[Rfam]
RNA sequence: CAGGACGAUCUUUGGCGUAUAGCGGUAAGUUCCCAAUUAACUUUUCAGAAGACCUUGAAUAUUUAAGGAAUGGACCUUAUCUAGUCUCCAGUGGCAAAUUUUUACCAGUAUUGGAGGUGUUAUGCGUCUGGAUCGUCUUAC
Numbered sequence: 001c002a003g004g005a006c007g008a009u010c011u012u013u014g015g016c017g018u019a020u021a022g023c024g025g026u027a028a029g030u031u032c033c034c035a036a037u038u039a040a041c042u043u044u045u046c047a048g049a050a051g052a053c054c055u056u057g058a059a060u061a062u063u064u065a066a067g068g069a070a071u072g073g074a075c076c077u078u079a080u081c082u083a084g085u086c087u088c089c090a091g092u093g094g095c096a097a098a099u100u101u102u103u104a105c106c107a108g109u110a111u112u113g114g115a116g117g118u119g120u121u122a123u124g125c126g127u128c129u130g131g132a133u134c135g136u137c138u139u140a141c
Stems, first nucleotide, its partner, number of pairs: 002139010014128006021121003025043001053068006070080003084118010